Rfam assigns this 84-nucleotide RNA from Actinidia chinensis to the family "Small nucleolar RNA U54". By type it is a C/D-box small nucleolar RNA. Rfam links the family to the GO terms RNA processing and nucleolus. NCBI's taxonomy places the organism under Eukaryota, Euphyllophyta, Mesangiospermae, Ericales, Actinidia chinensis.
RNA sequence: GGCUCUGUGAUUCCAUGCCUGAUUGAUGGGCAAUAUACGCUAUUCUGAUAGUAAGCGUGAGCUGAAAAUUUUUAACUGAGAGCU
Dot-bracket structure: (((((..........................................................................)))))
From the family's description: U54 is a C/D box small nucleolar RNA, which acts as a methylation guide for 18S ribosomal RNA in plants. The family has 21 seed sequences and 614 matches in Rfam 15.1. The match comes from Rfam's covariance-model search (50 bits).